[Rfam]
RNA sequence: AGGUGGCAUCUAUGAGCUUGAGAUGUUACUUGAUAAAGUCUUCCGGCAAUAACUUUCUUUACUUUCCUGCUCUCAGUUUUUAGGUGCAUACUUUGAGUCUCAACAAUUACAGAUACAAUG
Numbered sequence: 001a002g003g004u005g006g007c008a009u010c011u012a013u014g015a016g017c018u019u020g021a022g023a024u025g026u027u028a029c030u031u032g033a034u035a036a037a038g039u040c041u042u043c044c045g046g047c048a049a050u051a052a053c054u055u056u057c058u059u060u061a062c063u064u065u066c067c068u069g070c071u072c073u074c075a076g077u078u079u080u081u082a083g084g085u086g087c088a089u090a091c092u093u094u095g096a097g098u099c100u101c102a103a104c105a106a107u108u109a110c111a112g113a114u115a116c117a118a119u120g
Stems, first nucleotide, its partner, number of pairs: 001031003005027007056113003069098004075092002079088001